[Rfam]
RNA sequence: UCUGGUCCAGUGAUGUAAAAUUUUCGGAUGUAAAUCAUUAAAUUUCCAAGAGCGCAAAACCGUGUGGAUAUUUUCCGUUGCCUUCCUUCUGAGUACCUU
Numbered sequence: 001u002c003u004g005g006u007c008c009a010g011u012g013a014u015g016u017a018a019a020a021u022u023u024u025c026g027g028a029u030g031u032a033a034a035u036c037a038u039u040a041a042a043u044u045u046c047c048a049a050g051a052g053c054g055c056a057a058a059a060c061c062g063u064g065u066g067g068a069u070a071u072u073u074u075c076c077g078u079u080g081c082c083u084u085c086c087u088u089c090u091g092a093g094u095a096c097c098u099u
Stems, first nucleotide, its partner, number of pairs: 004098002025077004
Small nucleolar RNA Z13/snr52: a 99-nucleotide RNA sequence from Epicoccum nigrum.
Lineage of the source: Eukaryota > Fungi > Pezizomycotina > Dothideomycetes > Epicoccum.
The family has 42 seed sequences and 1,203 matches in Rfam 15.1.
The match comes from Rfam's covariance-model search (84 bits).
Pairs were carried over by alignment from the consensus structure, which was predicted with PFOLD.
Rfam classes the family as a C/D-box small nucleolar RNA.